[Rfam]
The family of this 84-nucleotide RNA from Thermoanaerobacteraceae bacterium SP2 is "c-di-GMP-I riboswitch aptamer". About the family: GEMM was predicted in a large-scale screen for bacterial structured RNA regulatory elements. Gene Ontology term of the family: cyclic-di-GMP binding.
RNA sequence: GGAAUUAAUAGGUAAACCUGCUGAAAGGUAGGGGCACAAAGCCAUGGGCCUAAAGCAUCCCGCUAUGGCUGCCAGGCUGCGGAU
Dot-bracket structure: ...........((...((((((....))))))...))..((((.((((((....((.....))...)))..)))))))......